[Rfam]
RNA sequence: CAGCAGGUCAUCUACUGAUCAGCUGUGUCAGUGCUGCUUGGUCGUUCCCCCUGCUGAAAUUAAACUGUUUCCUACUAUCCCUGUGUGUUUGCAUCCCACAGCUCACAGGGACGCUUGGUCUCAGACAU
Numbered sequence: 001c002a003g004c005a006g007g008u009c010a011u012c013u014a015c016u017g018a019u020c021a022g023c024u025g026u027g028u029c030a031g032u033g034c035u036g037c038u039u040g041g042u043c044g045u046u047c048c049c050c051c052u053g054c055u056g057a058a059a060u061u062a063a064a065c066u067g068u069u070u071c072c073u074a075c076u077a078u079c080c081c082u083g084u085g086u087g088u089u090u091g092c093a094u095c096c097c098a099c100a101g102c103u104c105a106c107a108g109g110g111a112c113g114c115u116u117g118g119u120c121u122c123a124g125a126c127a128u
Base pairs, nucleotide, nucleotide: 003054004053005052006051007050014042015041016040017039018038020036021035022034023033080109081108082107083106085104087102088101
Dot-bracket structure: ..(((((......(((((.((((.........)))).))))).......))))).........................((((.(.((............)).).))))...................